[Rfam]
RNA: chrB-a RNA
Organism: Roseivivax sediminis
RNA sequence: GGUAUCGGGCCCGCGACCGCCCCACGAGGCGCCAGCCGAAGAUCGCGUUCCAUGACCCUUUGAGAAGGAGGAACGCAGAUG
Numbered sequence: 001g002g003u004a005u006c007g008g009g010c011c012c013g014c015g016a017c018c019g020c021c022c023c024a025c026g027a028g029g030c031g032c033c034a035g036c037c038g039a040a041g042a043u044c045g046c047g048u049u050c051c052a053u054g055a056c057c058c059u060u061u062g063a064g065a066a067g068g069a070g071g072a073a074c075g076c077a078g079a080u081g
Stems, first nucleotide, its partner, number of pairs: 005024001007022004045076006
Dot-bracket structure: ....(.((((........)))).)....................((((((....................)))))).....